About this RNA:
Shown here is a 78-nucleotide RNA from Schistosoma mansoni, a member of the family "mir-3492 microRNA precursor family".

[Rfam]
RNA sequence: AGCUUUCUGAAUCUGUGCAAAGAUUUAAUCAGAUACCAACUCAUUAGGGUUGAUCAGCCUUCCAAAAUAAGUGAAGCU
Numbered sequence: 001a002g003c004u005u006u007c008u009g010a011a012u013c014u015g016u017g018c019a020a021a022g023a024u025u026u027a028a029u030c031a032g033a034u035a036c037c038a039a040c041u042c043a044u045u046a047g048g049g050u051u052g053a054u055c056a057g058c059c060u061u062c063c064a065a066a067a068u069a070a071g072u073g074a075a076g077c078u
Base pairs, nucleotide, nucleotide: 002077003076004075005074006073008071011068012067016064017063020061021060022059025057026056028054029053030052
It scores 50 bits against the family's covariance model. Gene Ontology terms of the family: RISC complex and miRNA-mediated post-transcriptional gene silencing. The source organism's lineage runs through Eukaryota, Opisthokonta, Rhabditophora, Schistosomatoidea and Schistosoma.